[Rfam]
RNA sequence: GAGUGUUUAAUGAUGGUCUGUUUCGAAACUCCACAGAUGGAGCAGGCCUGAUGUCUCACACUU
Numbered sequence: 001g002a003g004u005g006u007u008u009a010a011u012g013a014u015g016g017u018c019u020g021u022u023u024c025g026a027a028a029c030u031c032c033a034c035a036g037a038u039g040g041a042g043c044a045g046g047c048c049u050g051a052u053g054u055c056u057c058a059c060a061c062u063u
Stems, first nucleotide, its partner, number of pairs: 001063005015048010029036002